[Rfam]
mir-302 microRNA precursor family: a 69-nucleotide RNA sequence from Hipposideros armiger. NCBI's taxonomy places the organism under Eukaryota, Dipnotetrapodomorpha, Eutheria, Boreoeutheria, Hipposideros. The literature on the family includes a 2004 paper in Dev Biol by Suh et al., "Human embryonic stem cells express a unique set of microRNAs".
RNA sequence: CCGUCACUUCGACGUGGACGCACUUGCUCUGACACCAGUGCAGUAAGUGCUUCCAUGUUGUAGUGCUGG
Numbered sequence: 001c002c003g004u005c006a007c008u009u010c011g012a013c014g015u016g017g018a019c020g021c022a023c024u025u026g027c028u029c030u031g032a033c034a035c036c037a038g039u040g041c042a043g044u045a046a047g048u049g050c051u052u053c054c055a056u057g058u059u060g061u062a063g064u065g066c067u068g069g
Stems, first nucleotide, its partner, number of pairs: 001069003005065004010060009020050009